[Rfam]
RNA sequence: UAUAAAGCUGAGAAGAGAAGAGUAAAUAAGGACUUUUUCUACAGAGAGCUAGGUUAGGUGAAAGCUAGCGUCAAAGAAAUUAUUGAAGAUGGCCUCGGAGCUUUUUUAUCUGAAUAAUAGAGAGUUCUAUUUUUAAGAUAAAACGGUUAGACACGUUAUAGUCUGCUAAGAUAUCUAAAGUAUUAUAAGAUACCAUAUUGAUAUGAGUAAACAUCAAUAAGUUUUAACUUUUAAAGUAGUAUCUAUAAAUUUAGAUAAUUAGGGUGGUACCGCGAAUAAUCUCGCCCCUAUG
Numbered sequence: 001u002a003u004a005a006a007g008c009u010g011a012g013a014a015g016a017g018a019a020g021a022g023u024a025a026a027u028a029a030g031g032a033c034u035u036u037u038u039c040u041a042c043a044g045a046g047a048g049c050u051a052g053g054u055u056a057g058g059u060g061a062a063a064g065c066u067a068g069c070g071u072c073a074a075a076g077a078a079a080u081u082a083u084u085g086a087a088g089a090u091g092g093c094c095u096c097g098g099a100g101c102u103u104u105u106u107u108a109u110c111u112g113a114a115u116a117a118u119a120g121a122g123a124g125u126u127c128u129a130u131u132u133u134u135a136a137g138a139u140a141a142a143a144c145g146g147u148u149a150g151a152c153a154c155g156u157u158a159u160a161g162u163c164u165g166c167u168a169a170g171a172u173a174u175c176u177a178a179a180g181u182a183u184u185a186u187a188a189g190a191u192a193c194c195a196u197a198u199u200g201a202u203a204u205g206a207g208u209a210a211a212c213a214u215c216a217a218u219a220a221g222u223u224u225u226a227a228c229u230u231u232u233a234a235a236g237u238a239g240u241a242u243c244u245a246u247a248a249a250u251u252u253a254g255a256u257a258a259u260u261a262g263g264g265u266g267g268u269a270c271c272g273c274g275a276a277u278a279a280u281c282u283c284g285c286c287c288c289u290a291u292g
Stems, first nucleotide, its partner, number of pairs: 007101002015096003025084005039070001048069005105142007144155002241256005261289004272285004

This 292-nucleotide RNA from Romboutsia hominis belongs to the Rfam family "T-box leader". A search with the family's covariance model found it, with a score of 99 bits. The organism belongs to Romboutsia, within Bacteria. The base pairs follow the family's consensus structure, which is taken from published work. By type it is a cis-regulatory leader.